RNA sequence: GACAUCAAGUGAUGGAAUAUGAAAAUUAAUCUUAGGACACUUUCUUACACAGCUGGUUUUUAAUGUGCUGUGGAUGAGAAUGAAAUUUCUGUUCUGAUGGUGUC
Numbered sequence: 001g002a003c004a005u006c007a008a009g010u011g012a013u014g015g016a017a018u019a020u021g022a023a024a025a026u027u028a029a030u031c032u033u034a035g036g037a038c039a040c041u042u043u044c045u046u047a048c049a050c051a052g053c054u055g056g057u058u059u060u061u062a063a064u065g066u067g068c069u070g071u072g073g074a075u076g077a078g079a080a081u082g083a084a085a086u087u088u089c090u091g092u093u094c095u096g097a098u099g100g101u102g103u104c
Stems, first nucleotide, its partner, number of pairs: 001104007
Shown here is a 104-nucleotide RNA sequence from Coptis chinensis, a member of the family "Small nucleolar RNA snoR31/Z110/Z27". Taxonomically the source falls in Coptis (Eukaryota, Streptophytina, Embryophyta, Tracheophyta). About the family: This family contains several related snoRNAs including R31, Z27 and Z110. Its family is annotated with nucleolus and RNA processing in the Gene Ontology. Pairs were carried over by alignment from the consensus structure, which was predicted with PFOLD. It scores 48 bits against the family's covariance model.